[Rfam]
RNA: 7SK RNA
RNA sequence: GAAUAUGAGGUAAUCUGGCUGUGAGAGCUGAUAUGCACAGGUUGAUCUGACUGAUCUGACUUGCUUAGAAAGCGGUUCACUUCCUUCCUCAGCAUUCCAUAUGUGUUCCUCCUCGUGCUGUUGUGCUUGGUUAAUGAGGGCAGCCUCCCCAGUAGACAUGGUUCAUUGCGCAAGGGUGAGUGGUAGCUGCGCUCCCCUGCUGAAAGCUCUAAGUAAGCUCAAGGUCCAUCUGUAGAUGACUGUAAGGUAGUAAAGCAUCCAGUAAUGAAGACUUAUCAAAUUGAGAAGCUGCAUGCAGGAGUCUGCUAGU
Numbered sequence: 001g002a003a004u005a006u007g008a009g010g011u012a013a014u015c016u017g018g019c020u021g022u023g024a025g026a027g028c029u030g031a032u033a034u035g036c037a038c039a040g041g042u043u044g045a046u047c048u049g050a051c052u053g054a055u056c057u058g059a060c061u062u063g064c065u066u067a068g069a070a071a072g073c074g075g076u077u078c079a080c081u082u083c084c085u086u087c088c089u090c091a092g093c094a095u096u097c098c099a100u101a102u103g104u105g106u107u108c109c110u111c112c113u114c115g116u117g118c119u120g121u122u123g124u125g126c127u128u129g130g131u132u133a134a135u136g137a138g139g140g141c142a143g144c145c146u147c148c149c150c151a152g153u154a155g156a157c158a159u160g161g162u163u164c165a166u167u168g169c170g171c172a173a174g175g176g177u178g179a180g181u182g183g184u185a186g187c188u189g190c191g192c193u194c195c196c197c198u199g200c201u202g203a204a205a206g207c208u209c210u211a212a213g214u215a216a217g218c219u220c221a222a223g224g225u226c227c228a229u230c231u232g233u234a235g236a237u238g239a240c241u242g243u244a245a246g247g248u249a250g251u252a253a254a255g256c257a258u259c260c261a262g263u264a265a266u267g268a269a270g271a272c273u274u275a276u277c278a279a280a281u282u283g284a285g286a287a288g289c290u291g292c293a294u295g296c297a298g299g300a301g302u303c304u305g306c307u308a309g310u
Stems, first nucleotide, its partner, number of pairs: 001098001003096001006091005013085001017083002023080001025078006032071001034067001035064003040061004044056003106161002110156002112130002115127001117126002131152002138149003186256003192250002195247002198244003207238001210235001213233003217229001284307002288302003292298001